[Rfam]
RNA sequence: GUUUAUGUUGGGAGUGCUUGCUGUUUAAUUGGAUUUAAUUAAAUGUUUAGAGGUGCAGUAGACAUGACUUUGAGUAGAU
Numbered sequence: 001g002u003u004u005a006u007g008u009u010g011g012g013a014g015u016g017c018u019u020g021c022u023g024u025u026u027a028a029u030u031g032g033a034u035u036u037a038a039u040u041a042a043a044u045g046u047u048u049a050g051a052g053g054u055g056c057a058g059u060a061g062a063c064a065u066g067a068c069u070u071u072g073a074g075u076a077g078a079u
Stems, first nucleotide, its partner, number of pairs: 001079006008072001010070003014065003018061007026053001030049005
The family of this 79-nucleotide RNA from Suricata suricatta is "mir-1902 microRNA precursor family". Its family is annotated with RISC complex and miRNA-mediated post-transcriptional gene silencing in the Gene Ontology. The organism belongs to Suricata, within Eukaryota.